[Rfam]
Nucleotides: 579
Base pairs, nucleotide, nucleotide: 001575002574003573004572005571006570007569008568010567011566014562015561022396023395025393027392028391029388030387031386032385033384035189036188037187038186042181043180045178046177047176048175051154052153053152054151055150056149057148058147059146060145061144062143063142064141065140068137078136079135080134081133082132085119086118087117097110098109099108100107101106158169159168160167161166192205193203194202195201206228207227208226209225210224211223231334232333237289238288239287240286241285242284243269244268246264247263248262249261250260251259270279271278294320295319296318297317298316299315300314301313302312322331324329345374346373347372348371349370351369354368355367356366357365405446406445407444409443410440411439412438413437414436415435416434420430421429457532458530459529460528461527462524463521464520465519466518467517470495471494474489475488476487477486478485498510499509500508501507538556539555540554541553542551543550544549
Number, partner (000 for none) and nucleotide at each position: 001575c002574u003573c004572c005571c006570a007569c008568g009000u010567g011566a012000a013000a014562g015561c016000g017000a018000a019000g020000u021000c022396c023395c024000c025393g026000u027392g028391g029388a030387g031386c032385u033384u034000u035189a036188c037187u038186g039000c040000a041000g042181c043180c044000u045178g046177u047176a048175g049000c050000u051154g052153u053152g054151g055150u056149g057148c058147g059146a060145u061144c062143c063142u064141g065140a066000c067000u068137g069000c070000g071000u072000a073000g074000u075000g076000u077000a078136g079135g080134a081133a082132g083000g084000a085119g086118c087117c088000g089000u090000c091000g092000a093000a094000g095000c096000u097110c098109u099108g100107g101106u102000u103000u104000c105000g106101g107100c108099c109098g110097g111000a112000g113000u114000g115000g116000a117087g118086g119085c120000g121000c122000c123000a124000a125000u126000g127000a128000a129000a130000c131000a132082c133081u134080u135079c136078c137068c138000u139000c140065u141064c142063g143062g144061g145060a146059u147058u148057g149056c150055g151054u152053c153052a154051c155000u156000a157000a158169c159168c160167u161166c162000u163000u164000c165000g166161g167160a168159g169158g170000g171000a172000c173000a174000a175048c176047u177046a178045u179000u180043g181042g182000u183000g184000g185000g186038c187037a188036g189035u190000u191000u192205g193203g194202g195201u196000g197000g198000g199000g200000c201195g202194c203193c204000a205192c206228g207227c208226c209225c210224c211223u212000a213000a214000c215000a216000a217000c218000g219000u220000a221000a222000c223211a224210g225209g226208g227207g228206c229000c230000c231334c232333c233000a234000a235000a236000g237289g238288u239287c240286a241285g242284c243269u244268c245000a246264g247263g248262a249261g250260g251259g252000u253000c254000a255000g256000a257000a258000a259251u260250c261249c262248u263247c264246c265000g266000u267000a268244g269243a270279g271278u272000g273000u274000a275000a276000a277000a278271g279270c280000a281000a282000a283000a284242g285241c286240u287239g288238g289237c290000u291000u292000g293000a294320c295319u296318g297317u298316g299315u300314u301313g302312c303000a304000g305000a306000c307000a308000a309000c310000u311000a312302g313301c314300a315299a316298c317297g318296c319295a320294g321000a322331u323000g324329c325000g326000a327000a328000a329324g330000c331322a332000g333232g334231g335000u336000u337000u338000a339000g340000c341000g342000a343000a344000c345374c346373a347372c348371c349370c350000a351369g352000u353000u354368c355367c356366u357365c358000c359000u360000u361000a362000g363000u364000g365357g366356g367355g368354g369351c370349g371348g372347g373346u374345g375000a376000u377000a378000a379000g380000a381000g382000a383000g384033a385032a386031g387030u388029u389000a390000c391028c392027c393025c394000a395023g396022g397000g398000a399000u400000a401000a402000c403000u404000g405446a406445g407444u408000c409443g410440u411439c412438c413437u414436c415435g416434g417000c418000a419000a420430g421429a422000g423000u424000a425000c426000a427000c428000a429421u430420c431000g432000a433000c434416c435415c436414g437413a438412g439411g440410g441000u442000u443409u444407g445406c446405u447000a448000c449000u450000u451000c452000g453000a454000u455000g456000u457532c458530g459529u460528c461527u462524g463521u464520u465519c466518c467517u468000a469000u470495c471494c472000u473000g474489g475488u476487g477486c478485u479000g480000c481000a482000u483000a484000a485478g486477g487476u488475g489474c490000c491000a492000a493000g494471g495470g496000u497000g498510g499509g500508g501507c502000u503000g504000u505000u506000c507501g508500c509499c510498c511000a512000u513000u514000a515000a516000a517467a518466g519465g520464g521463a522000u523000c524462c525000u526000g527461a528460g529459a530458u531000g532457g533000g534000u535000u536000c537000a538556c539555u540554a541553c542551g543550u544549c545000g546000c547000g548000a549544g550543a551542c552000a553541g554540u555539a556538g557000g558000g559000u560000u561015g562014c563000u564000u565000c566011u567010c568008c569007g570006u571005g572004g573003g574002a575001g576000u577000g578000c579000u